A member of the RNA family "Plant signal recognition particle RNA" from Theobroma umbraticum, 308 nucleotides long. The base pairs follow the family's consensus structure, which is taken from published work. The family is grouped with related families in Rfam's "SRP clan". The family's RNA type in Rfam is non-coding RNA gene. It scores 211 bits against the family's covariance model.
RNA sequence: ACCGAGCUGUGUAGCGCCAGCUUAUAACCAAAGUGGGGGUGGUAUGGUGAUGGGACAGUGGCUCUGCCCACCGUGUCGGAUCCUUUGUGGUCAAAUAUCCGGGUUGUCCAUUCCAAGCGAGGAGUUGAACCAUGGGACUUGAACGAAGGCUCUAAGUCUCAUGGAUCUUAGAGUGGAGGGCACAGCGUGAGGCUGGUUUCACAGAGCAGCGAAAACUUCCCACUCUUCGCAGUGGAAGGACAACAGACCGGUGCCGCUUAGAAUCCAAUAUGGCUCUGGGGGUGGAUCCUAACUGGACCAACAUCCUU
Numbered sequence: 001a002c003c004g005a006g007c008u009g010u011g012u013a014g015c016g017c018c019a020g021c022u023u024a025u026a027a028c029c030a031a032a033g034u035g036g037g038g039g040u041g042g043u044a045u046g047g048u049g050a051u052g053g054g055a056c057a058g059u060g061g062c063u064c065u066g067c068c069c070a071c072c073g074u075g076u077c078g079g080a081u082c083c084u085u086u087g088u089g090g091u092c093a094a095a096u097a098u099c100c101g102g103g104u105u106g107u108c109c110a111u112u113c114c115a116a117g118c119g120a121g122g123a124g125u126u127g128a129a130c131c132a133u134g135g136g137a138c139u140u141g142a143a144c145g146a147a148g149g150c151u152c153u154a155a156g157u158c159u160c161a162u163g164g165a166u167c168u169u170a171g172a173g174u175g176g177a178g179g180g181c182a183c184a185g186c187g188u189g190a191g192g193c194u195g196g197u198u199u200c201a202c203a204g205a206g207c208a209g210c211g212a213a214a215a216c217u218u219c220c221c222a223c224u225c226u227u228c229g230c231a232g233u234g235g236a237a238g239g240a241c242a243a244c245a246g247a248c249c250g251g252u253g254c255c256g257c258u259u260a261g262a263a264u265c266c267a268a269u270a271u272g273g274c275u276c277u278g279g280g281g282g283u284g285g286a287u288c289c290u291a292a293c294u295g296g297a298c299c300a301a302c303a304u305c306c307u308u
Stems, first nucleotide, its partner, number of pairs: 001040003004023006028037002044307001046305004051300003056295002059291002061288001063286004068281002071278001073276001075274003078266004083261002087257001090255001094252001099251004104246004108239002111237005117230009127167002130164012142151001144149001168173001175220005186211003193204003